Background
Small nucleolar RNA SNORD63: a 76-nucleotide sequence from Alligator mississippiensis. It scores 62 bits against the family's covariance model. Taxonomically the source falls in Alligator (Eukaryota, Craniata, Vertebrata, Alligatorinae). Gene Ontology terms of the family: nucleolus and RNA processing.
[Rfam]
RNA sequence: GUGCUAUGAUGUAAUAUCAACACAUCAUUCUGAAGAGAAUGGAACAUGUGGAGACUUUUUUUUAUUACUGAGCACA
Number, nucleotide and partner (000 for none) at each position: 001g075002u074003g073004c072005u000006a000007u000008g000009a000010u000011g000012u000013a000014a000015u000016a000017u000018c000019a000020a000021c000022a000023c000024a000025u000026c000027a000028u000029u000030c000031u000032g000033a000034a000035g000036a000037g000038a000039a000040u000041g000042g000043a000044a000045c000046a000047u000048g000049u000050g000051g000052a000053g000054a000055c000056u000057u000058u000059u000060u000061u000062u000063u000064a000065u000066u000067a000068c000069u000070g000071a000072g004073c003074a002075c001076a000